RNA sequence: GAGAAUGAUGAAGAGACUGUUGAAAGUGUCUCUGCCAUUGUUUGAACAUUGAGGAAUAACUAACCCUAAUGGGCGAGUCAUCGUUUCGGUCGCCCUUUCUCUGAUUGGCGAAUCGAUUGUUCCUCGUCUACAU
Numbered sequence: 001g002a003g004a005a006u007g008a009u010g011a012a013g014a015g016a017c018u019g020u021u022g023a024a025a026g027u028g029u030c031u032c033u034g035c036c037a038u039u040g041u042u043u044g045a046a047c048a049u050u051g052a053g054g055a056a057u058a059a060c061u062a063a064c065c066c067u068a069a070u071g072g073g074c075g076a077g078u079c080a081u082c083g084u085u086u087c088g089g090u091c092g093c094c095c096u097u098u099c100u101c102u103g104a105u106u107g108g109c110g111a112a113u114c115g116a117u118u119g120u121u122c123c124u125c126g127u128c129u130a131c132a133u
Base pairs, nucleotide, nucleotide: 006040007039008038009037010036013032014031015030016029017028071129072128074126075125076124077123080117081116082115083114090111091110092109093108094107097104098103
Dot-bracket structure: .....(((((..(((((..........)))))...)))))..............................((.((((..((((......(((((..((....))..)))))..)))).....)))).))....